A member of the RNA family "L31-Firmicutes ribosomal protein leader", 34 nucleotides long. The literature on the family includes a 2020 paper in BMC Microbiol by Eckert and Weinberg, "Discovery of 20 novel ribosomal leader candidates in bacteria and archaea".
[Rfam]
RNA sequence: CUUUGGAUACGACGGAGAUCCAAGGCGGAAGGAG
Numbered sequence: 001c002u003u004u005g006g007a008u009a010c011g012a013c014g015g016a017g018a019u020c021c022a023a024g025g026c027g028g029a030a031g032g033a034g
Stems, first nucleotide, its partner, number of pairs: 001025008